[Rfam]
The record is an 82-nucleotide sequence from Entomortierella parvispora, which matches "tRNA" in Rfam. NCBI's taxonomy places the organism under Eukaryota, Fungi, Mortierellomycetes, Mortierellales, Entomortierella. The match comes from Rfam's covariance-model search (50 bits). By type it is a transfer RNA. The base pairs follow the family's consensus structure, which is taken from published work.
RNA sequence: GCAAACUUCGGGUAGUGGUUAUCCCGUGAGGUUUAGGCCCUCUGCCUUUAUUGGCACGUGGGUUCAAAUCCCACAGUUUGCA
Number, nucleotide and partner (000 for none) at each position: 001g081002c080003a079004a078005a077006c076007u075008u000009c000010g025011g024012g023013u000014a000015g000016u000017g000018g000019u000020u000021a000022u000023c012024c011025c010026g000027u000028g042029a041030g040031g039032u000033u000034u000035a000036g000037g000038c000039c031040c030041u029042c028043u000044g000045c000046c000047u000048u000049u000050a000051u000052u000053g000054g000055c000056a000057c000058g074059u073060g072061g071062g070063u000064u000065c000066a000067a000068a000069u000070c062071c061072c060073a059074c058075a007076g006077u005078u004079u003080g002081c001082a000